[Rfam]
RNA sequence: UGAAAGUAUUUUACGAUUAAGAAGCAACUGCCUCUUGUACAGAUUAUAC
Numbered sequence: 001u002g003a004a005a006g007u008a009u010u011u012u013a014c015g016a017u018u019a020a021g022a023a024g025c026a027a028c029u030g031c032c033u034c035u036u037g038u039a040c041a042g043a044u045u046a047u048a049c
Stems, first nucleotide, its partner, number of pairs: 018037005024031002
Dot-bracket structure: .................(((((.((....)).)))))............
The record is a 49-nucleotide RNA from Digitaria exilis, which matches "Plastid-rps18 3UTR RNA" in Rfam. Rfam classes the family as a cis-regulatory element. NCBI's taxonomy places the organism under Eukaryota, Mesangiospermae, Petrosaviidae, Panicodae, Digitaria. Plastid rps18 is a non-coding RNA (ncRNA) present in plastids. It was identified as a short stem-loop motif in the 3 prime untranslate region (3UTR) of rps18 gene. It scores 64 bits against the family's covariance model. The family has 238 seed sequences and 1,462 matches in Rfam 15.1. Pairs were carried over by alignment from the consensus structure, which was predicted with LocARNA.